[Rfam]
RNA sequence: UUCCCCGUGAGGGCGUGUGGGAUGGAAGCCGGAGCCGAACCGCAGCACUGAACGCAAGUGAACCCUUAAGCAGGCUUACUGGACCUGGGCAAGCGUGCCUGCCAACGCGACGCCCAAUAUCCGAUUGUGGCCAGGAAGUAAUGAGGGCAGCGGCGGCGGGACAUUGCUUUAUC
Numbered sequence: 001u002u003c004c005c006c007g008u009g010a011g012g013g014c015g016u017g018u019g020g021g022a023u024g025g026a027a028g029c030c031g032g033a034g035c036c037g038a039a040c041c042g043c044a045g046c047a048c049u050g051a052a053c054g055c056a057a058g059u060g061a062a063c064c065c066u067u068a069a070g071c072a073g074g075c076u077u078a079c080u081g082g083a084c085c086u087g088g089g090c091a092a093g094c095g096u097g098c099c100u101g102c103c104a105a106c107g108c109g110a111c112g113c114c115c116a117a118u119a120u121c122c123g124a125u126u127g128u129g130g131c132c133a134g135g136a137a138g139u140a141a142u143g144a145g146g147g148c149a150g151c152g153g154c155g156g157c158g159g160g161a162c163a164u165u166g167c168u169u170u171a172u173c
Stems, first nucleotide, its partner, number of pairs: 002015001004013003028173001031170002035166001040159004045154001046152001048150003063147006074139003079134004084130001087115004093108004
RNA: Group II catalytic intron D1-D4-3
Organism: Aeoliella mucimassa